The record is an 85-nucleotide sequence from Oxynema acuminatum, which matches "Fluoride riboswitch aptamer (crcB RNA motif)" in Rfam.
The family has 289 seed sequences and 2,293 matches in Rfam 15.1.
It scores 52 bits against the family's covariance model.
The base pairs follow the family's consensus structure, which is taken from published work.
RNA sequence: AAGAUUGAAGGCGAUGGAGCUCGCCAUAACCGCCGAUUCAGCGAUCCCGAUGGGAGGCUGAAGGGCUGAUGGCUCCUACCUGUCC
Number, nucleotide and partner (000 for none) at each position: 001a000002a000003g000004a000005u000006u000007g000008a000009a000010g025011g024012c023013g022014a000015u000016g076017g075018a074019g073020c072021u071022c013023g012024c011025c010026a000027u000028a000029a000030c000031c000032g066033c065034c064035g000036a000037u000038u000039c000040a000041g000042c000043g000044a000045u000046c000047c000048c000049g000050a000051u000052g000053g000054g000055a000056g000057g000058c000059u000060g000061a000062a000063g000064g034065g033066c032067u000068g000069a000070u000071g021072g020073c019074u018075c017076c016077u000078a000079c000080c000081u000082g000083u000084c000085c000